[Rfam]
RNA sequence: GACCAUAGCCAAAGAAUCGUCAGUGUUCGAAGCUUGCAUAAUGGGCGCAUUGAUUUGCCCUCCAAAGCUUUGGGUAGAAAGUCUCCGACCACUUCUUUUGCGGAAAACGUAAUGAGAUUUAAAAAUUUUUUACAAGAUGUUUAAAUCAACUCAUUAAAGAUGUGUCUCCUUUGGCGUUCUGUCAGUUCUUCGGAGUUGGCAGAUGCUUUUUUGCGCAUUUUUUGUGUCCCGUGGCGUUUAAAAGUCGCGGUGUCUUCGGUACUGGAAUCCUUUCUUAUGGGUUCCAAACGAUAGUUAUGACGAUUGCACUCUAAAAGGGUGUAACUCAAUGGAGCUUACUGUUCUUGGCUCAUGGU
Number, nucleotide and partner (000 for none) at each position: 001g000002a356003c355004c354005a353006u352007a000008g349009c348010c347011a346012a345013a000014g000015a305016a304017u303018c302019g301020u300021c000022a000023g000024u000025g000026u000027u073028c072029g071030a070031a069032g068033c067034u000035u000036g000037c000038a000039u000040a000041a000042u000043g060044g059045g058046c057047g056048c000049a054050u000051u000052g000053a000054u049055u000056u047057g046058c045059c044060c043061u000062c000063c000064a000065a000066a000067g033068c032069u031070u030071u029072g028073g027074g000075u000076a000077g000078a000079a337080a336081g335082u000083c334084u333085c332086c331087g000088a000089c000090c000091a000092c000093u000094u000095c000096u000097u000098u000099u111100g110101c109102g108103g000104a000105a000106a000107a000108c102109g101110u100111a099112a000113u000114g000115a000116g000117a000118u000119u000120u000121a000122a000123a000124a000125a000126u000127u000128u000129u000130u000131u000132a000133c000134a000135a000136g000137a000138u000139g000140u000141u000142u000143a000144a000145a000146u000147c000148a000149a000150c000151u000152c000153a000154u000155u000156a000157a000158a000159g000160a000161u000162g000163u000164g000165u000166c000167u000168c000169c000170u000171u000172u000173g000174g000175c000176g000177u000178u000179c000180u000181g000182u000183c000184a000185g000186u000187u000188c000189u000190u000191c000192g000193g000194a000195g000196u000197u000198g000199g000200c000201a000202g000203a218204u217205g216206c215207u000208u213209u000210u000211u000212u000213g208214c000215g206216c205217a204218u203219u000220u266221u265222u264223u000224g000225u000226g262227u261228c000229c259230c258231g257232u000233g254234g253235c252236g000237u000238u000239u000240a000241a000242a000243a000244g000245u250246c000247g000248c000249g000250g245251u000252g235253u234254c233255u000256u000257c231258g230259g229260u000261a227262c226263u000264g222265g221266a220267a000268u000269c000270c000271u000272u000273u000274c000275u000276u000277a000278u000279g000280g000281g000282u000283u000284c000285c000286a000287a000288a000289c000290g000291a000292u000293a000294g000295u000296u000297a000298u000299g000300a020301c019302g018303a017304u016305u015306g000307c321308a320309c319310u318311c317312u316313a000314a000315a000316a312317g311318g310319g309320u308321g307322u000323a000324a000325c000326u000327c000328a000329a000330u000331g086332g085333a084334g083335c081336u080337u079338a000339c000340u000341g000342u000343u000344c000345u012346u011347g010348g009349c008350u000351c000352a006353u005354g004355g003356u002
RNA: RNase MRP
Organism: Lachancea mirantina